[Rfam]
RNA sequence: GCGCCUGCGGGGGCUCUGACGCGCGGCCCAGACUCCGGCCGCCGGGACCGCGCCGAGCCACUGGCGAGACCGACCCGCCAGCGG
Numbered sequence: 001g002c003g004c005c006u007g008c009g010g011g012g013g014c015u016c017u018g019a020c021g022c023g024c025g026g027c028c029c030a031g032a033c034u035c036c037g038g039c040c041g042c043c044g045g046g047a048c049c050g051c052g053c054c055g056a057g058c059c060a061c062u063g064g065c066g067a068g069a070c071c072g073a074c075c076c077g078c079c080a081g082c083g084g
Stems, first nucleotide, its partner, number of pairs: 002083003007078005012059003021053006028046001037071002040066004
Overview
Rfam assigns this 84-nucleotide sequence to the family "c-di-GMP-II-GAG riboswitch aptamer". The base pairs follow the family's consensus structure, which is taken from published work.